[Rfam]
RNA sequence: GUUGGAGAAUUCCAAAGGGAUCGCAUUGAUCUGAAAAUUUGAUCCGAAUUUUUCGAAUUUAAUCUGAUUUUUUCAUUUUCGAUAUUCGGAUCAUGCGAUCCUUUCGGAAUUCUCCAU
Numbered sequence: 001g002u003u004g005g006a007g008a009a010u011u012c013c014a015a016a017g018g019g020a021u022c023g024c025a026u027u028g029a030u031c032u033g034a035a036a037a038u039u040u041g042a043u044c045c046g047a048a049u050u051u052u053u054c055g056a057a058u059u060u061a062a063u064c065u066g067a068u069u070u071u072u073u074c075a076u077u078u079u080c081g082a083u084a085u086u087c088g089g090a091u092c093a094u095g096c097g098a099u100c101c102u103u104u105c106g107g108a109a110u111u112c113u114c115c116a117u
Stems, first nucleotide, its partner, number of pairs: 003116004008111006015104007023096004028092005036085001
Dot-bracket structure: ..((((.((((((.(((((((.((((.(((((...(................................................)..))))))))).))))))).)))))).)))).
Shown here is a 117-nucleotide sequence from Striga asiatica, a member of the family "mir-393 microRNA precursor family". For this family Rfam cites "Role of microRNAs and other sRNAs of plants in their changing environments" (Kruszka et al., J Plant Physiol, 2012). It scores 86 bits against the family's covariance model. The base pairs follow the family's consensus structure.